[Rfam]
RNA sequence: CCUCCGGUGAUGAUGGUCUUGGUGACUUUCGUUCUCCUGAGCUUCAUGAAGCCACGGAUUUCAAUCUGAGGAGG
Number, nucleotide and partner (000 for none) at each position: 001c074002c073003u072004c000005c070006g000007g000008u000009g000010a000011u000012g000013a000014u000015g000016g000017u000018c000019u000020u000021g000022g000023u000024g000025a000026c000027u000028u000029u000030c000031g000032u000033u000034c000035u000036c000037c000038u000039g000040a000041g000042c000043u000044u000045c000046a000047u000048g000049a000050a000051g000052c000053c000054a000055c000056g000057g000058a000059u000060u000061u000062c000063a000064a000065u000066c000067u000068g000069a000070g005071g000072a003073g002074g001

Shown here is a 74-nucleotide sequence from Rhinopomastus cyanomelas, a member of the family "Small nucleolar RNA SNORD59". A reference for the family is Galardi et al. (2002), "Purified box C/D snoRNPs are able to reproduce site-specific 2'-O-methylation of target RNA in vitro", Mol Cell Biol. Its family is annotated with nucleolus and RNA processing in the Gene Ontology. Clan: SNORD59 clan. Pairs were carried over by alignment from the consensus structure, which was predicted with ILM. NCBI's taxonomy places the organism under Eukaryota, Sarcopterygii, Aves, Telluraves, Rhinopomastus.